Shown here is a 118-nucleotide sequence from Cupriavidus gilardii, a member of the family "Glycine riboswitch aptamer". Rfam links the family to the GO term glycine biosynthetic process. A reference for the family is Mandal et al. (2004), "A glycine-dependent riboswitch that uses cooperative binding to control gene expression", Science. It scores 66 bits against the family's covariance model. The organism belongs to Cupriavidus gilardii, within Bacteria.

RNA sequence: GGAAAACAAACUGGAGAGCGCCGUUGUCGCCAUUGAGCCGAUAGCGGCCGCCGAAGGGGCAAGCCGGACCCGGUGGCGGGGCGGCGAAUCUCUCAGGCAAAAGGACAGUGGGGGCAGC
Numbered sequence: 001g002g003a004a005a006a007c008a009a010a011c012u013g014g015a016g017a018g019c020g021c022c023g024u025u026g027u028c029g030c031c032a033u034u035g036a037g038c039c040g041a042u043a044g045c046g047g048c049c050g051c052c053g054a055a056g057g058g059g060c061a062a063g064c065c066g067g068a069c070c071c072g073g074u075g076g077c078g079g080g081g082c083g084g085c086g087a088a089u090c091u092c093u094c095a096g097g098c099a100a101a102a103g104g105a106c107a108g109u110g111g112g113g114g115c116a117g118c
Base pairs, nucleotide, nucleotide: 007112010109011108012107013106020048021047022046023045024044025043026042027041028040029039050098051097052096053094054093057092058091059090063085064084065083066082